[Rfam]
RNA sequence: UGACGACCCGCGCCGAAUCUCGCGGGCCGGUGCGGUCCGCGGAACCGGGGAACCGAUUCUCCACCUGGGGUGAAUCCGCUCGCGCGAGCGGUAGGGCGACUCCGGCCCGAACCCGGCAGCUCACCCGGUAGGCGGCACUGGAGAGGACGA
Numbered sequence: 001u002g003a004c005g006a007c008c009c010g011c012g013c014c015g016a017a018u019c020u021c022g023c024g025g026g027c028c029g030g031u032g033c034g035g036u037c038c039g040c041g042g043a044a045c046c047g048g049g050g051a052a053c054c055g056a057u058u059c060u061c062c063a064c065c066u067g068g069g070g071u072g073a074a075u076c077c078g079c080u081c082g083c084g085c086g087a088g089c090g091g092u093a094g095g096g097c098g099a100c101u102c103c104g105g106c107c108c109g110a111a112c113c114c115g116g117c118a119g120c121u122c123a124c125c126c127g128g129u130a131g132g133c134g135g136c137a138c139u140g141g142a143g144a145g146g147a148c149g150a
Stems, first nucleotide, its partner, number of pairs: 011134004018043003044129006054067002068114003076091004094108004

Shown here is a 150-nucleotide sequence from Actinomadura chibensis, a member of the family "c-di-AMP riboswitch aptamer (ydaO/yuaA leader)". Rfam describes the family as follows. This family represents a conserved RNA structure found upstream of the ydaO and yuaA genes in Bacillus subtilis and related genes in other bacteria.